[Rfam]
RNA sequence: GCCGGCGAUCCUUACCAGGCAAGCUUAGAUUCCUCUGCUGAUCCUAUCUAAUACUGUCUGGUUAUGUCGCCGGC
Numbered sequence: 001g002c003c004g005g006c007g008a009u010c011c012u013u014a015c016c017a018g019g020c021a022a023g024c025u026u027a028g029a030u031u032c033c034u035c036u037g038c039u040g041a042u043c044c045u046a047u048c049u050a051a052u053a054c055u056g057u058c059u060g061g062u063u064a065u066g067u068c069g070c071c072g073g074c
Base pairs, nucleotide, nucleotide: 002073003072004071005070006069007068008067011066012064014062015061016060017059018058019057020056021055025051026050027049028048029047
mir-8/mir-141/mir-200 microRNA precursor family: a 74-nucleotide sequence from Petromyzon marinus. Lineage of the source: Eukaryota > Metazoa > Eumetazoa > Hyperoartia > Petromyzon. Clan: mir-8 microRNA precursor clan. Pairs were carried over by alignment from the consensus structure, which was predicted with RNAalifold. A reference for the family is Lagos-Quintana et al. (2001), "Identification of novel genes coding for small expressed RNAs", Science. Rfam 15.1 lists 2,669 matches to the family in 883 species. Gene Ontology terms of the family: miRNA-mediated post-transcriptional gene silencing and RISC complex.